[Rfam]
RNA: U4 spliceosomal RNA
RNA sequence: AUCUUUGCGCUUGGGGCAAUGACGUAGCUAGUGAGGUUCUAACCGAGGCGCGUCUAUUGCUGGUUGAAAACUAUUUCUAAACCCCCUCUUAGGCUUGAGUUUAACUCAAGCCUUUGAGAAUUUCUGGAAGGACUCCUUCGGGGUAAAGUC
Numbered sequence: 001a002u003c004u005u006u007g008c009g010c011u012u013g014g015g016g017c018a019a020u021g022a023c024g025u026a027g028c029u030a031g032u033g034a035g036g037u038u039c040u041a042a043c044c045g046a047g048g049c050g051c052g053u054c055u056a057u058u059g060c061u062g063g064u065u066g067a068a069a070a071c072u073a074u075u076u077c078u079a080a081a082c083c084c085c086c087u088c089u090u091a092g093g094c095u096u097g098a099g100u101u102u103a104a105c106u107c108a109a110g111c112c113u114u115u116g117a118g119a120a121u122u123u124c125u126g127g128a129a130g131g132a133c134u135c136c137u138u139c140g141g142g143g144u145a146a147a148g149u150c
Stems, first nucleotide, its partner, number of pairs: 021054005027049003035044003086118003091113009131150004